This 107-nucleotide RNA sequence from Lactuca sativa belongs to the Rfam family "Plant small nucleolar RNA R71". Rfam classes the family as a C/D-box small nucleolar RNA. Gene Ontology terms of the family: nucleolus and RNA processing. The source organism's lineage runs through Eukaryota, Embryophyta, Tracheophyta, campanulids and Lactuca. A search with the family's covariance model found it, with a score of 63 bits.
RNA sequence: AGGUCAUUUUGAGGACAAUUUCUCAACAAUCCCUUAUAGCACUCCCAUGCCUCAUAAAGUGACUCACCCGGAUUUUGCUCAAAAUUUGCUAUUACCUUUUUGAGUUU
Numbered sequence: 001a002g003g004u005c006a007u008u009u010u011g012a013g014g015a016c017a018a019u020u021u022c023u024c025a026a027c028a029a030u031c032c033c034u035u036a037u038a039g040c041a042c043u044c045c046c047a048u049g050c051c052u053c054a055u056a057a058a059g060u061g062a063c064u065c066a067c068c069c070g071g072a073u074u075u076u077g078c079u080c081a082a083a084a085u086u087u088g089c090u091a092u093u094a095c096c097u098u099u100u101u102g103a104g105u106u107u
Stems, first nucleotide, its partner, number of pairs: 001107001003105002005102002057074002060071001